The family of this 95-nucleotide RNA sequence from Clostridiaceae bacterium 14S0207 is "pan motif". It scores 60 bits against the family's covariance model. Rfam classes the family as a cis-regulatory element.
[Rfam]
RNA sequence: UGGGUAGUAUCUUUAUUUGAAGAACUGCACCAAUUGUUUAUACUAUAAUAAUUUAAUUUUACAUUGCUUGUAUCUUUUAAGAAUAAGACAAUGAG
Numbered sequence: 001u002g003g004g005u006a007g008u009a010u011c012u013u014u015a016u017u018u019g020a021a022g023a024a025c026u027g028c029a030c031c032a033a034u035u036g037u038u039u040a041u042a043c044u045a046u047a048a049u050a051a052u053u054u055a056a057u058u059u060u061a062c063a064u065u066g067c068u069u070g071u072a073u074c075u076u077u078u079a080a081g082a083a084u085a086a087g088a089c090a091a092u093g094a095g
Base pairs, nucleotide, nucleotide: 001032002031003030004028005027006026007025008024010023011022012021013020014019064091065090066089067087068086069085070084071083073082074081075080